[Rfam]
RNA sequence: GGCCUAAAGCGUCCGUAGCUUGUCGUGAAAGUCUAUCGGGAAAUCGACGCGCUCAACGCGUCGGCUUCCGGUGGAAACUGCACGGCUUGGGGCCGGAAGACUCAGCGGGUACGUCUGGGGUAGGAGUGAAAUCCUGUAAUCCUGGACGGACCACCAAUGGCGAAAGCACGCUGAGAAGCCGGACCCGACAGUGAGGGACGAAAGCCAGGGUCCCGAACCGGAUUAGAUACCCGGGUAGUCCUGGCCGUAAACGAUGCUCGUUAGGUCUGCCGUGCACUACGAGUGCACGGUGAGCCGAAGUGAAGACGAUAAACGAGCCGCCUGGGAAGUACGUCCGCAAGGAUGAAACUUAAAGGAAU
Dot-bracket structure: (((.....(.((((.(.(((.((((((..(((((((((((....(((((((.....)))))))...)))))))))..)).))))))...(((((((....(((((((((..((((((((...(((......)))......))))))))..)).......((....)).)))))))...)))).)))...))))..))))....((((((....(...((((.........))))...).))))))..........((((((..(((.((((((((((.....)))))))))).)))...((....)).....)))))))))).(((......((((....))))....)))........
RNA: Archaeal small subunit ribosomal RNA, nucleotides 506 to 864
Organism: Halomicrobium mukohataei